[Rfam]
RNA sequence: CUGCAUGUUCAUCCAAGAGCUGCGGCUCCCUGCAGUGGCUGCAGCUCUCCAACAACAUGCGAGAGCAACGGGAAGGUCUUUGACUGCACGGCCUCUUCUGCCUCUUGCUGUCACUCGCCCCUCCUAUAUAU
Numbered sequence: 001c002u003g004c005a006u007g008u009u010c011a012u013c014c015a016a017g018a019g020c021u022g023c024g025g026c027u028c029c030c031u032g033c034a035g036u037g038g039c040u041g042c043a044g045c046u047c048u049c050c051a052a053c054a055a056c057a058u059g060c061g062a063g064a065g066c067a068a069c070g071g072g073a074a075g076g077u078c079u080u081u082g083a084c085u086g087c088a089c090g091g092c093c094u095c096u097u098c099u100g101c102c103u104c105u106u107g108c109u110g111u112c113a114c115u116c117g118c119c120c121c122u123c124c125u126a127u128a129u130a131u
Base pairs, nucleotide, nucleotide: 013044018040019039020035021034022033023032024031071124072123073122075120076119086111087110090102091101

Small nucleolar RNA SNORA44: a 131-nucleotide RNA from Aegotheles bennettii. A reference for the family is Huttenhofer et al. (2001), "RNomics: an experimental approach that identifies 201 candidates for novel, small, non-messenger RNAs in mouse", EMBO J. Rfam describes the family as follows. ACA44 is a member of the H/ACA class of snoRNA that guide the sites of modification of uridines to pseudouridines. The source organism's lineage runs through Eukaryota, Eumetazoa, Neognathae, Caprimulgiformes and Aegotheles. Rfam classes the family as an H/ACA-box small nucleolar RNA.